[Rfam]
Rfam assigns this 387-nucleotide RNA from Sphingomonas guangdongensis to the family "Bacterial RNase P class A". It scores 285 bits against the family's covariance model. Taxonomically the source falls in Sphingomonas (Bacteria, Pseudomonadati, Pseudomonadota, Sphingomonadales).

RNA sequence: CCAGAGGGUCGGGCGGCCGCCGCUUGCGUUUCACGCGAGGGGAGGAAAGUCCGGGCUCCACGGAAACGACGGUGGCGGGUAACGCCCGCCGGGGGCGACCCCAGGGACAGUGCCACAGAGAGCAGACCGCCGCUGAUGCCUCGGGAUCGGCGGCAAGGGUGAAAGGGUGCGGUAAGAGCGCACCGCGGCCCCGGCAACGGGUGCCGGUCGUGGUAAACCCCACCGGGAGCAAGACCGAAUAGGGACGGCACACGCGCUUCGUUCCGGCGCGUCGUCCGGGUUGGUUGCUGGAGGCGGCGCGCGAGCGUCGUCCUAGAGGAAUGGUCGCCCAUCCCCGUCCUACCGGGACGGGGUGGACAGAACCCGGCUUACAGACCCUCUGGCGCU
Numbered sequence: 001c002c003a004g005a006g007g008g009u010c011g012g013g014c015g016g017c018c019g020c021c022g023c024u025u026g027c028g029u030u031u032c033a034c035g036c037g038a039g040g041g042g043a044g045g046a047a048a049g050u051c052c053g054g055g056c057u058c059c060a061c062g063g064a065a066a067c068g069a070c071g072g073u074g075g076c077g078g079g080u081a082a083c084g085c086c087c088g089c090c091g092g093g094g095g096c097g098a099c100c101c102c103a104g105g106g107a108c109a110g111u112g113c114c115a116c117a118g119a120g121a122g123c124a125g126a127c128c129g130c131c132g133c134u135g136a137u138g139c140c141u142c143g144g145g146a147u148c149g150g151c152g153g154c155a156a157g158g159g160u161g162a163a164a165g166g167g168u169g170c171g172g173u174a175a176g177a178g179c180g181c182a183c184c185g186c187g188g189c190c191c192c193g194g195c196a197a198c199g200g201g202u203g204c205c206g207g208u209c210g211u212g213g214u215a216a217a218c219c220c221c222a223c224c225g226g227g228a229g230c231a232a233g234a235c236c237g238a239a240u241a242g243g244g245a246c247g248g249c250a251c252a253c254g255c256g257c258u259u260c261g262u263u264c265c266g267g268c269g270c271g272u273c274g275u276c277c278g279g280g281u282u283g284g285u286u287g288c289u290g291g292a293g294g295c296g297g298c299g300c301g302c303g304a305g306c307g308u309c310g311u312c313c314u315a316g317a318g319g320a321a322u323g324g325u326c327g328c329c330c331a332u333c334c335c336c337g338u339c340c341u342a343c344c345g346g347g348a349c350g351g352g353g354u355g356g357a358c359a360g361a362a363c364c365c366g367g368c369u370u371a372c373a374g375a376c377c378c379u380c381u382g383g384c385g386c387u
Stems, first nucleotide, its partner, number of pairs: 001383010011372001012329007020042002023039006047370003051367005056229004068262001070225005075089005090104001091102004105220002110218002112214003127158002129154009166184006185209001186206004191200003233286004243277006254270005293312008